Shown here is a 185-nucleotide sequence from Actinorugispora endophytica, a member of the family "Actinobacteria sRNA Ms_IGR-5". The literature on the family includes a 2013 paper in RNA by Li et al., "Identification of small RNAs in Mycobacterium smegmatis using heterologous Hfq". The pairing is the family consensus, mapped onto this sequence. By type it is a small RNA. Taxonomically the source falls in Actinorugispora (Bacteria, Bacillati, Streptosporangiales, Nocardiopsidaceae).
RNA sequence: ACGCAGGAAAGGAGGUGGUCCAAAAGUGUAUUCUUUUAGGACUCGCGAGGUGUUCGUCCGCUAGGGCGAAUCGCUGUUCGGAUCGCCCAGGCGAUUCCACGAUGGACACCCAGACCCUCGGGUGGCCGGCCUUGUCCGACCGGCCCCGGCACGAUGCCGGACAAUACGCCCGGGGGUCCGUCCAU
Numbered sequence: 001a002c003g004c005a006g007g008a009a010a011g012g013a014g015g016u017g018g019u020c021c022a023a024a025a026g027u028g029u030a031u032u033c034u035u036u037u038a039g040g041a042c043u044c045g046c047g048a049g050g051u052g053u054u055c056g057u058c059c060g061c062u063a064g065g066g067c068g069a070a071u072c073g074c075u076g077u078u079c080g081g082a083u084c085g086c087c088c089a090g091g092c093g094a095u096u097c098c099a100c101g102a103u104g105g106a107c108a109c110c111c112a113g114a115c116c117c118u119c120g121g122g123u124g125g126c127c128g129g130c131c132u133u134g135u136c137c138g139a140c141c142g143g144c145c146c147c148g149g150c151a152c153g154a155u156g157c158c159g160g161a162c163a164a165u166a167c168g169c170c171c172g173g174g175g176g177u178c179c180g181u182c183c184a185u
Stems, first nucleotide, its partner, number of pairs: 014058005059093004064088006071081003113178012126160005
Dot-bracket structure: .............(((((...................................)))))((((.((((((.(((.....))).)))))).))))...................((((((((((((.(((((.........................)))))......)))))))))))).......